[Rfam]
RNA sequence: AUGCCUUAAACUUAUGAGUAAGGAAAAUAACGAUUUGGGGUGACACCUGAAUCCUCACUGCUAAUGUGAGAUGAAUUUUUGAGCGGGUAAAGGUUGCCCCUAAGGUGACCCAUCUACUCAGGGGGAUGCCUGGGAGUCGCGGUCUUA
Numbered sequence: 001a002u003g004c005c006u007u008a009a010a011c012u013u014a015u016g017a018g019u020a021a022g023g024a025a026a027a028u029a030a031c032g033a034u035u036u037g038g039g040g041u042g043a044c045a046c047c048u049g050a051a052u053c054c055u056c057a058c059u060g061c062u063a064a065u066g067u068g069a070g071a072u073g074a075a076u077u078u079u080u081g082a083g084c085g086g087g088u089a090a091a092g093g094u095u096g097c098c099c100c101u102a103a104g105g106u107g108a109c110c111c112a113u114c115u116a117c118u119c120a121g122g123g124g125g126a127u128g129c130c131u132g133g134g135a136g137u138c139g140c141g142g143u144c145u146u147a
Base pairs, nucleotide, nucleotide: 004023005022006021007020008019032053033052034051035050036049037048038047039046054070055069056068057067058066088147091145092144093143094142095141096140097139100134101133103131104130105129106128107127109125110124111123113121